[Rfam]
The family of this 73-nucleotide sequence from Candidatus Magnetobacterium bavaricum is "tRNA". The family's consensus secondary structure is taken from published work. NCBI's taxonomy places the organism under Bacteria, Nitrospirota, Thermodesulfovibrionia, Magnetobacteriaceae (SeqCode), Magnetobacterium (SeqCode). Transfer RNA (tRNA) molecules are approximately 80 nucleotides in length. Gene Ontology term of the family: triplet codon-amino acid adaptor activity.

RNA sequence: GAGCCGCUAGCUCAGUAGGUAGAGCACCGCCCUUUUAAGGCGGGCGUCCUGGGUUCGACUCCCAGGCGGCUCA
Numbered sequence: 001g002a003g004c005c006g007c008u009a010g011c012u013c014a015g016u017a018g019g020u021a022g023a024g025c026a027c028c029g030c031c032c033u034u035u036u037a038a039g040g041c042g043g044g045c046g047u048c049c050u051g052g053g054u055u056c057g058a059c060u061c062c063c064a065g066g067c068g069g070c071u072c073a
Base pairs, nucleotide, nucleotide: 001072002071003070004069005068006067007066010025011024012023013022027043028042029041030040031039049065050064051063052062053061